[Rfam]
RNA sequence: CUGCUUUGAGGACAAAGAGAAUAAAGACUUCAUGUU
Numbered sequence: 001c002u003g004c005u006u007u008g009a010g011g012a013c014a015a016a017g018a019g020a021a022u023a024a025a026g027a028c029u030u031c032a033u034g035u036u
Base pairs, nucleotide, nucleotide: 001019002018004017005016006015007014
Rfam assigns this 36-nucleotide RNA to the family "Renin stability regulatory element (REN-SRE)". The family's RNA type in Rfam is cis-regulatory element. From the family's description: This family represents a cis-acting element in the 3'-UTR of the renin (REN) gene called renin stability regulatory element (REN-SRE) which acts to regulate renin production. REN-SRE is thought to destabilise the mRNA, promoting degradation of the sequence. Pairs were carried over by alignment from the consensus structure, which is taken from published work. The family has 13 seed sequences and 120 matches in Rfam 15.1. A reference for the family is Adams et al. (2003), "HADHB, HuR, and CP1 Bind to the Distal 3'-Untranslated Region of Human Renin mRNA and Differentially Modulate Renin Expression", J Biol Chem.